This 91-nucleotide RNA belongs to the Rfam family "Rhodo-rpoB RNA".
The family's RNA type in Rfam is cis-regulatory element.
The base pairs follow the family's consensus structure, which is taken from published work.
[Rfam]
RNA sequence: CGAUCGGGAGGCCCGCGGUGGGACGCGGGCCGAGCAUGGAUCGCCCCGCCGUCUCCGAUGGACGCGCAGCUGUGGCCCGGCAGCGCGCGCG
Dot-bracket structure: (((((....((((((((......)))))))).......)))))...................(((((.((((........))))..)))))
Numbered sequence: 001c002g003a004u005c006g007g008g009a010g011g012c013c014c015g016c017g018g019u020g021g022g023a024c025g026c027g028g029g030c031c032g033a034g035c036a037u038g039g040a041u042c043g044c045c046c047c048g049c050c051g052u053c054u055c056c057g058a059u060g061g062a063c064g065c066g067c068a069g070c071u072g073u074g075g076c077c078c079g080g081c082a083g084c085g086c087g088c089g090c091g
Stems, first nucleotide, its partner, number of pairs: 001043005010031008063091005069084004